[Rfam]
A member of the RNA family "c-di-AMP riboswitch aptamer (ydaO/yuaA leader)" from Thermosinus carboxydivorans, 148 nucleotides long.
RNA sequence: AUUACAAUAACGCCGAAUCCGUUUGGUACGGGGGACCCACUAAAGAUACAGGGGUGAAUCCGCCAGAAUGGUGGAAGGGUUCUUUCUCUAGUCCUUCUCUUUGACCCUAACCCGACAGCUAACCUCGGAGGCGUAGAAAAAGAGAGGU
Number, nucleotide and partner (000 for none) at each position: 001a000002u000003u000004a000005c000006a000007a000008u000009a000010a000011c133012g132013c131014c130015g000016a000017a000018u000019c026020c025021g000022u000023u000024u000025g020026g019027u000028a000029c127030g126031g125032g124033g123034g000035a000036c000037c000038c051039a000040c000041u000042a000043a000044a000045g000046a000047u000048a000049c000050a000051g038052g113053g112054g111055u000056g000057a000058a000059u000060c074061c073062g072063c071064c000065a000066g000067a000068a000069u000070g000071g063072u062073g061074g060075a000076a000077g107078g106079g105080u104081u000082c000083u000084u000085u000086c000087u000088c000089u000090a000091g000092u000093c000094c000095u000096u000097c000098u000099c000100u000101u000102u000103g000104a080105c079106c078107c077108u000109a000110a000111c054112c053113c052114g000115a000116c000117a000118g000119c000120u000121a000122a000123c033124c032125u031126c030127g029128g000129a000130g014131g013132c012133g011134u000135a000136g000137a000138a000139a000140a000141a000142g000143a000144g000145a000146g000147g000148u000
It scores 86 bits against the family's covariance model. The organism belongs to Thermosinus carboxydivorans, within Bacteria. Pairs were carried over by alignment from the consensus structure.